[Rfam]
RNA: SAM/SAH riboswitch aptamer
Organism: Aliigemmobacter aestuarii
RNA sequence: UACUCGUCACAACGGCUUCCUGGCGUGGCGAUGAUAUCCCAAUGGAGCA
Number, nucleotide and partner (000 for none) at each position: 001u000002a000003c000004u031005c030006g029007u028008c027009a026010c025011a000012a000013c022014g021015g048016c047017u046018u000019c045020c044021u014022g013023g000024c000025g010026u009027g008028g007029c006030g005031a004032u000033g000034a000035u000036a000037u000038c000039c000040c000041a000042a000043u000044g020045g019046a017047g016048c015049a000